tRNA: a 94-nucleotide RNA sequence from Lojkania enalia. Rfam's curators write: Transfer RNA (tRNA) molecules are approximately 80 nucleotides in length. Their secondary structure includes four short double-helical elements and three loops (D, anti-codon, and T loops).
[Rfam]
RNA sequence: UCCUCCAUGGCGCAAUUGGCUAGCGCGUCUGACUGUUAUCAUCUCGAUAAUGAGAGCAAUCAGGAGGUUGGUGGUUCGAGCCCACCUGGGGGAG
Numbered sequence: 001u002c003c004u005c006c007a008u009g010g011c012g013c014a015a016u017u018g019g020c021u022a023g024c025g026c027g028u029c030u031g032a033c034u035g036u037u038a039u040c041a042u043c044u045c046g047a048u049a050a051u052g053a054g055a056g057c058a059a060u061c062a063g064g065a066g067g068u069u070g071g072u073g074g075u076u077c078g079a080g081c082c083c084a085c086c087u088g089g090g091g092g093a094g
Stems, first nucleotide, its partner, number of pairs: 001093007010026004028064005070086005
It scores 50 bits against the family's covariance model.